[Rfam]
Rfam assigns this 180-nucleotide RNA sequence from Oceanospirillum linum to the family "6S / SsrS RNA".
RNA sequence: UGAUUCCUGGGGUGUUCGCCAGCUGUUAACGUCCUCGAGCCUAAUUACAAACCCAGGGAAUCAUCCGUGAGUACCCGUGUGCAUGUCCGCGCGACGGAAAGCCUUAGGUACUUCGAUGAUUACCCACCUUGAACCUAAUUGGUUCAAGGGCAACGGCAGCAGCGGCACUCUGGGGCUUUA
Numbered sequence: 001u002g003a004u005u006c007c008u009g010g011g012g013u014g015u016u017c018g019c020c021a022g023c024u025g026u027u028a029a030c031g032u033c034c035u036c037g038a039g040c041c042u043a044a045u046u047a048c049a050a051a052c053c054c055a056g057g058g059a060a061u062c063a064u065c066c067g068u069g070a071g072u073a074c075c076c077g078u079g080u081g082c083a084u085g086u087c088c089g090c091g092c093g094a095c096g097g098a099a100a101g102c103c104u105u106a107g108g109u110a111c112u113u114c115g116a117u118g119a120u121u122a123c124c125c126a127c128c129u130u131g132a133a134c135c136u137a138a139u140u141g142g143u144u145c146a147a148g149g150g151c152a153a154c155g156g157c158a159g160c161a162g163c164g165g166c167a168c169u170c171u172g173g174g175g176c177u178u179u180a
Stems, first nucleotide, its partner, number of pairs: 002178002005175011017164003031151004037145005056125003060120006067114001069113007081102002086098004
Pairs were carried over by alignment from the consensus structure, which is taken from published work. From the family's description: E. coli 6S RNA was the first non coding RNA to be sequenced, but its function was unknown until recently. It consists of 184 nucleotides that fold into an extended hairpin structure with a large single-stranded internal bulge. The 6S RNA specifically associates with RNA polymerase holoenzyme containing the sigma70 specificity factor. This interaction represses expression from a sigma70-dependent promoter during stationary phase. 6S RNA homologs have recently been identified in most bacterial genomes. For this family Rfam cites "A highly conserved 6S RNA structure is required for regulation of transcription" (Trotochaud and Wassarman, Nat Struct Mol Biol, 2005). The family's RNA type in Rfam is non-coding RNA gene.